[Rfam]
RNA sequence: AGCGAGAGUAGAAGCGUUCACUGCUGCGUGAAGUGCCGCCCGGUACUUCGGUUGAUCGGCGCAGCGGCCGGAAAUUGCUCUUGAA
Numbered sequence: 001a002g003c004g005a006g007a008g009u010a011g012a013a014g015c016g017u018u019c020a021c022u023g024c025u026g027c028g029u030g031a032a033g034u035g036c037c038g039c040c041c042g043g044u045a046c047u048u049c050g051g052u053u054g055a056u057c058g059g060c061g062c063a064g065c066g067g068c069c070g071g072a073a074a075u076u077g078c079u080c081u082u083g084a085a
Stems, first nucleotide, its partner, number of pairs: 005081006015070001018072002021067009
Shown here is an 85-nucleotide sequence from Ralstonia sp. AU12-08, a member of the family "Xanthine riboswitch aptamer (NMT1 RNA)".